[Rfam]
RNA sequence: UCACUGGCAACGGUGGGGUCUGAAGAAGCUGAAGGAAGAACUUAGAACAUAGCGAAAGCGAACCUGGGUUGGCCGAUCAGGUGGGUAACCUUGCAUAUUAUGGGAAAGCCCAAUAGCCGGACAACCCGAUAGGUUAGGACGGAUGGAUUCAAGUUCAGGCAAGCAGA
Numbered sequence: 001u002c003a004c005u006g007g008c009a010a011c012g013g014u015g016g017g018g019u020c021u022g023a024a025g026a027a028g029c030u031g032a033a034g035g036a037a038g039a040a041c042u043u044a045g046a047a048c049a050u051a052g053c054g055a056a057a058g059c060g061a062a063c064c065u066g067g068g069u070u071g072g073c074c075g076a077u078c079a080g081g082u083g084g085g086u087a088a089c090c091u092u093g094c095a096u097a098u099u100a101u102g103g104g105a106a107a108g109c110c111c112a113a114u115a116g117c118c119g120g121a122c123a124a125c126c127c128g129a130u131a132g133g134u135u136a137g138g139a140c141g142g143a144u145g146g147a148u149u150c151a152a153g154u155u156c157a158g159g160c161a162a163g164c165a166g167a
Base pairs, nucleotide, nucleotide: 001016002015003014004013005012006011029166030165031164035160040154041153042152043151045149048145049144050143063142064141072134073133074132076130077129078128080126081125082124083111084110085109086108089104090103091102
Dot-bracket structure: ((((((....))))))............(((...(....((((.(..(((............((.......(((.(((.(((((((..(((..........)))...))))............))).))).)))......)))))...).)))).....)...))).